[Rfam]
RNA: CRISPR RNA direct repeat element
Nucleotides: 030
Base pairs, nucleotide, nucleotide: 009019010018011017012016
Number, partner (000 for none) and nucleotide at each position: 001000a002000u003000u004000u005000a006000a007000a008000u009019a010018c011017a012016u013000c014000u015000c016012a017011u018010g019009u020000u021000a022000a023000u024000g025000u026000u027000c028000a029000a030000c